[Rfam]
RNA: Flavo-1 RNA
RNA sequence: AAAUUGCGUGAGGGAGUGCAGCGGCAUCCUUUUUCCCGGUCUUUCAGCGGGGAAAAGAUAAAGCGAAAAGCCCGGCCCUUU
Numbered sequence: 001a002a003a004u005u006g007c008g009u010g011a012g013g014g015a016g017u018g019c020a021g022c023g024g025c026a027u028c029c030u031u032u033u034u035c036c037c038g039g040u041c042u043u044u045c046a047g048c049g050g051g052g053a054a055a056a057g058a059u060a061a062a063g064c065g066a067a068a069a070g071c072c073c074g075g076c077c078c079u080u081u
Stems, first nucleotide, its partner, number of pairs: 012073003017068001021064002026059003032054007